[Rfam]
RNA sequence: GGUCAUUGAUGAAAACAGCCAAAUCUAAGUGUCAGAAAACCUUGCAGUUUACCUAAAGCAUGAUCUCUGUAGUGCUGACA
Number, nucleotide and partner (000 for none) at each position: 001g000002g000003u000004c000005a000006u000007u000008g000009a000010u000011g000012a000013a000014a000015a000016c000017a000018g000019c000020c000021a000022a000023a000024u000025c000026u000027a000028a000029g059030u058031g000032u056033c000034a000035g000036a000037a050038a049039a048040c047041c000042u000043u000044g000045c000046a000047g040048u039049u038050u037051a000052c000053c000054u000055a000056a032057a000058g030059c029060a000061u000062g000063a000064u000065c000066u000067c000068u000069g000070u000071a000072g000073u000074g000075c000076u000077g000078a000079c000080a000
RNA: Small nucleolar RNA U2-19
Organism: Odocoileus virginianus